[Rfam]
RNA sequence: GAGCUCGCCGCAACGGUAAUUCAGCUUAGUACGAGAGGAACCGCUGAUUCAGAUAAUUGGUUUUUGCGGCUGUCCGACCGGGCAGUGCCGCGAAGCUACCAUCUGCCGGAUAAUGGCUGAACGCCUCUAAGUCAGAAUCCGUGCCGGAACGCGGCGACACCGCCCGCACGUACAGACGGACAAGAAUAGGCCCCGGCCUGGCGUCCCAGCAGGCGAUCCGCCCGCGGCGCGCGAAGAGGCGCCGCGGCACUUCGCGUAUGGCAAUUUCAACACGAGCGGGGUCAAAUCCUUUGCAGACGACUUAGCUGUGCGAAACGGUCCUGUAAGCAGUAGAGUAGCCUUGUUGUUACGAUCUGCUGAGGGUAAGCCGUCCUUCGCCUCGAUUUCC
Dot-bracket structure: ....(((((((..((((.(.(((((.................))))).)(((((...(((....(((((((((((....))))))..)))))...)))..))))).(((....(((((...........)))))....))).))))....))))))).....(((((.(........................................................................................................).)))))...(((((((..(.......)..))....(((((.(((.((.....((((.(..(((((......)))))..)))))....))....)))...)))))...)))))..
Eukaryotic large subunit ribosomal RNA: a 388-nucleotide part of an RNA from Ophiocordyceps camponoti-rufipedis.
The match comes from Rfam's covariance-model search (3121 bits).
The family has 88 seed sequences and 107,465 matches in Rfam 15.1.
Lineage of the source: Eukaryota > Dikarya > saccharomyceta > leotiomyceta > Ophiocordyceps.